Shown here is a 189-nucleotide RNA from Tyzzerella sp. An114, a member of the family "6S / SsrS RNA". The match comes from Rfam's covariance-model search (69 bits). Rfam's curators write: E. coli 6S RNA was the first non coding RNA to be sequenced, but its function was unknown until recently. It consists of 184 nucleotides that fold into an extended hairpin structure with a large single-stranded internal bulge. The 6S RNA specifically associates with RNA polymerase holoenzyme containing the sigma70 specificity factor. This interaction represses expression from a sigma70-dependent promoter during stationary phase. 6S RNA homologs have recently been identified in most bacterial genomes.
[Rfam]
RNA sequence: AGGUUCCUGAAGUGUGCGACAACCUGUUGUUUUUGAACCUACAUUACUUAAACGGGAAUCCUAUAAACGAAGAAUAUGUCAGGCCUCUUACUAAUUCCCUUUGGGCUGAGGAAGGCAGAGUUUUAGUUGCGGAUACCCACCUGGCUACGGCUAGGUGUCAGAAGGCAGGAACGGCAUUUCGGGGAUUUU
Dot-bracket structure: .((((((((((((((.((............(((((((((..............(((.((((...(.((.((((.....((...((((....................))))..)).....)))).)))..)))).)))...............))).))))))........))))))))))))))))..
Numbered sequence: 001a002g003g004u005u006c007c008u009g010a011a012g013u014g015u016g017c018g019a020c021a022a023c024c025u026g027u028u029g030u031u032u033u034u035g036a037a038c039c040u041a042c043a044u045u046a047c048u049u050a051a052a053c054g055g056g057a058a059u060c061c062u063a064u065a066a067a068c069g070a071a072g073a074a075u076a077u078g079u080c081a082g083g084c085c086u087c088u089u090a091c092u093a094a095u096u097c098c099c100u101u102u103g104g105g106c107u108g109a110g111g112a113a114g115g116c117a118g119a120g121u122u123u124u125a126g127u128u129g130c131g132g133a134u135a136c137c138c139a140c141c142u143g144g145c146u147a148c149g150g151c152u153a154g155g156u157g158u159c160a161g162a163a164g165g166c167a168g169g170a171a172c173g174g175c176a177u178u179u180c181g182g183g184g185a186u187u188u189u
Stems, first nucleotide, its partner, number of pairs: 002187014017173002031163006037156003054138003058134004065128001067127002070124004079115002084111004